[Rfam]
RNA sequence: AGGCGGGGGCAACCGAACCACAUGGAUGGAGACGGGGGACCCACCGGUCCACCGUGAUCGGACUGGAGCCGCCCGCGGCUCCUAGGGGUGAAGCCGACGUCGUCGCUUCGACGACCACGCCGGCCGGGUGGCCUCUCCAACCCGAACCCGACAGCUGACCUCGCAGGCGCGUGACGAGAGAGGAA
Numbered sequence: 001a002g003g004c005g006g007g008g009g010c011a012a013c014c015g016a017a018c019c020a021c022a023u024g025g026a027u028g029g030a031g032a033c034g035g036g037g038g039a040c041c042c043a044c045c046g047g048u049c050c051a052c053c054g055u056g057a058u059c060g061g062a063c064u065g066g067a068g069c070c071g072c073c074c075g076c077g078g079c080u081c082c083u084a085g086g087g088g089u090g091a092a093g094c095c096g097a098c099g100u101c102g103u104c105g106c107u108u109c110g111a112c113g114a115c116c117a118c119g120c121c122g123g124c125c126g127g128g129u130g131g132c133c134u135c136u137c138c139a140a141c142c143c144g145a146a147c148c149c150g151a152c153a154g155c156u157g158a159c160c161u162c163g164c165a166g167g168c169g170c171g172u173g174a175c176g177a178g179a180g181a182g183g184a185a
Stems, first nucleotide, its partner, number of pairs: 013167002018031001033163005042085001086149003094123003126143004
RNA: c-di-AMP riboswitch aptamer (ydaO/yuaA leader)
Organism: Mycobacterium avium